The family of this 114-nucleotide RNA from Paucilactobacillus oligofermentans is "SAM-III riboswitch aptamer (SMK box)". Pairs were carried over by alignment from the consensus structure, which is taken from published work.
RNA sequence: UAAAGUUAUAAGUCCAUUCCCGAUAGGAUUCACGCCUGUGAAGAUGCCUUGUAACCGCAAUUAGAGAUUCAUUUAUUUUGAAUUUCAAACCGCAAAUAGGGGGAAUUUUUUAUG
Number, nucleotide and partner (000 for none) at each position: 001u000002a000003a000004a000005g000006u000007u000008a000009u000010a000011a000012g000013u000014c000015c000016a000017u105018u104019c103020c102021c101022g000023a000024u000025a049026g048027g047028a000029u042030u041031c040032a039033c038034g000035c000036c000037u000038g033039u032040g031041a030042a029043g000044a000045u000046g000047c027048c026049u025050u000051g000052u000053a000054a000055c100056c099057g000058c000059a000060a000061u000062u000063a000064g000065a000066g000067a000068u000069u000070c000071a000072u000073u000074u000075a000076u000077u000078u000079u000080g000081a000082a000083u000084u000085u000086c000087a000088a000089a000090c000091c000092g000093c000094a000095a000096a000097u000098a000099g056100g055101g021102g020103g019104a018105a017106u000107u000108u000109u000110u000111u000112a000113u000114g000